[Rfam]
RNA sequence: CCUGUUGCUGGGUCGCCUGUAACAGU
Numbered sequence: 001c002c003u004g005u006u007g008c009u010g011g012g013u014c015g016c017c018u019g020u021a022a023c024a025g026u
Stems, first nucleotide, its partner, number of pairs: 002025007010017002
Dot-bracket structure: .(((((((.((....)).))))))).

This 26-nucleotide sequence from gamma proteobacterium WG36 belongs to the Rfam family "L25-Gammaproteobacteria ribosomal protein leader". Rfam classes the family as a cis-regulatory leader. On this family, see Eckert and Weinberg, BMC Microbiol 2020: "Discovery of 20 novel ribosomal leader candidates in bacteria and archaea". It is one of the family's seed sequences. The organism belongs to Gammaproteobacteria, within Bacteria.